[Rfam]
RNA sequence: GGUCCCAAGUAAUUUUGUUUAAAAUGUUCUAUUGAAGAUUGUAGUGGCUAUGCUUAUGGGAUAGAUUAAAAUUGCCAUGAUCUGAAGAGGGAGGGUUUAUUUGUGUCCUCCUCCUAUAUGAAAUGGCUGAACAGAAAGAA
Numbered sequence: 001g002g003u004c005c006c007a008a009g010u011a012a013u014u015u016u017g018u019u020u021a022a023a024a025u026g027u028u029c030u031a032u033u034g035a036a037g038a039u040u041g042u043a044g045u046g047g048c049u050a051u052g053c054u055u056a057u058g059g060g061a062u063a064g065a066u067u068a069a070a071a072u073u074g075c076c077a078u079g080a081u082c083u084g085a086a087g088a089g090g091g092a093g094g095g096u097u098u099a100u101u102u103g104u105g106u107c108c109u110c111c112u113c114c115u116a117u118a119u120g121a122a123a124u125g126g127c128u129g130a131a132c133a134g135a136a137a138g139a140a
Stems, first nucleotide, its partner, number of pairs: 004060004016047001019044001074127004092115004

The record is a 140-nucleotide RNA from Molossus molossus, which matches "Small nucleolar RNA SNORA29" in Rfam.
The match comes from Rfam's covariance-model search (115 bits).
Rfam describes the family as follows. ACA29 is a member of the H/ACA class of snoRNA that guide the sites of modification of uridines to pseudouridines.
Rfam 15.1 lists 960 matches to the family in 621 species.
The base pairs follow the family's consensus structure, which was predicted with PFOLD.
Lineage of the source: Eukaryota > Mammalia > Eutheria > Yangochiroptera > Molossus.
On this family, see Huttenhofer et al., EMBO J 2001: "RNomics: an experimental approach that identifies 201 candidates for novel, small, non-messenger RNAs in mouse".
By type it is an H/ACA-box small nucleolar RNA.